Shown here is a 171-nucleotide RNA, a member of the family "RT-2 RNA". It is one of the family's seed sequences.
[Rfam]
RNA sequence: UCUGACGGCCUCGCGCCGUCGGACAAACAUAUACCGCGAUACGGUUAGCCGGACGCUCCUUGCAUGGGUGCGGAGUGCGUGUUUUCCGUGCUUUCAUGGCUCACCGUUACGCAUUUUAGACAACACGCCGAGAAAGAAAUGUACGAGGUAUUUUUAUUUUAUGAACAGCGC
Numbered sequence: 001u002c003u004g005a006c007g008g009c010c011u012c013g014c015g016c017c018g019u020c021g022g023a024c025a026a027a028c029a030u031a032u033a034c035c036g037c038g039a040u041a042c043g044g045u046u047a048g049c050c051g052g053a054c055g056c057u058c059c060u061u062g063c064a065u066g067g068g069u070g071c072g073g074a075g076u077g078c079g080u081g082u083u084u085u086c087c088g089u090g091c092u093u094u095c096a097u098g099g100c101u102c103a104c105c106g107u108u109a110c111g112c113a114u115u116u117u118a119g120a121c122a123a124c125a126c127g128c129c130g131a132g133a134a135a136g137a138a139a140u141g142u143a144c145g146a147g148g149u150a151u152u153u154u155u156a157u158u159u160u161a162u163g164a165a166c167a168g169c170g171c
Stems, first nucleotide, its partner, number of pairs: 001023009031151005037145002040143001041107005047101004055063002066093010111142005117137001119128001